Annotation
This 69-nucleotide sequence from Pirellula sp. SH-Sr6A belongs to the Rfam family "int-alpA RNA". It scores 36 bits against the family's covariance model. It is annotated as a small RNA. The family's consensus secondary structure is taken from published work. Rfam describes the family as follows. Acidobacteria (1 example), Planctomycetes (1 example), Proteobacteria.
Nucleotides: 069
Base pairs, nucleotide, nucleotide: 001055002054003053004052005051006050007049008048011024012023030045031044032043033042036069037068038067039066040065041064
Number, partner (000 for none) and nucleotide at each position: 001055a002054u003053c004052a005051c006050g007049g008048c009000u010000a011024g012023g013000a014000a015000a016000u017000u018000c019000g020000a021000a022000g023012c024011c025000g026000a027000a028000a029000g030045c031044c032043g033042c034000c035000a036069c037068c038067c039066a040065u041064a042033g043032c044031g045030g046000u047000u048008g049007c050006c051005g052004u053003g054002g055001u056000g057000u058000u059000u060000u061000c062000u063000u064041u065040a066039u067038g068037g069036g